[Rfam]
RNA: Small nucleolar RNA snoR27
Organism: Theobroma cacao
RNA sequence: AUUGGAUCCAUGAUGCUACUUUUACAAACUGCGUUAUCUAUCUGAACUUCUUCUUUUGAGGGAUUGAAGAUACUCUUCCAUGCUGAGAUCCAGU
Numbered sequence: 001a002u003u004g005g006a007u008c009c010a011u012g013a014u015g016c017u018a019c020u021u022u023u024a025c026a027a028a029c030u031g032c033g034u035u036a037u038c039u040a041u042c043u044g045a046a047c048u049u050c051u052u053c054u055u056u057u058g059a060g061g062g063a064u065u066g067a068a069g070a071u072a073c074u075c076u077u078c079c080a081u082g083c084u085g086a087g088a089u090c091c092a093g094u
Stems, first nucleotide, its partner, number of pairs: 001094007